Rfam assigns this 170-nucleotide RNA sequence from Nicoletella semolina to the family "Lysine riboswitch aptamer".

RNA sequence: ACAACUUGUAGAGGUGCAGAUACAAUAAGUACUCUUGCUGAGUGGAAAACGAGGACGUAAGAAGAAAGGUGUAUUUGCCGAAAUCAGUUAAGCGUCAUCUUAAUUGGUUGGGGUCGCUUCCGAAAGGAGCGGCACUGUCAUAGCAAAUGCUAUGGAGUGCUACUGUUAGG
Numbered sequence: 001a002c003a004a005c006u007u008g009u010a011g012a013g014g015u016g017c018a019g020a021u022a023c024a025a026u027a028a029g030u031a032c033u034c035u036u037g038c039u040g041a042g043u044g045g046a047a048a049a050c051g052a053g054g055a056c057g058u059a060a061g062a063a064g065a066a067a068g069g070u071g072u073a074u075u076u077g078c079c080g081a082a083a084u085c086a087g088u089u090a091a092g093c094g095u096c097a098u099c100u101u102a103a104u105u106g107g108u109u110g111g112g113g114u115c116g117c118u119u120c121c122g123a124a125a126g127g128a129g130c131g132g133c134a135c136u137g138u139c140a141u142a143g144c145a146a147a148u149g150c151u152a153u154g155g156a157g158u159g160c161u162a163c164u165g166u167u168a169g170g
Base pairs, nucleotide, nucleotide: 006165008163009162010161011160016078017077018076019075020074021073022072023071024070033062034061035060036059037058038057082109083108084107085106086105087104088103089102090101091100092099110136111135113133114132115131116130117129118128119127120126138155139154140153141152142151143150144149
Lineage of the source: Bacteria > Pseudomonadati > Pseudomonadota > Pasteurellaceae > Nicoletella. The family's consensus secondary structure is taken from published work. A search with the family's covariance model found it, with a score of 133 bits.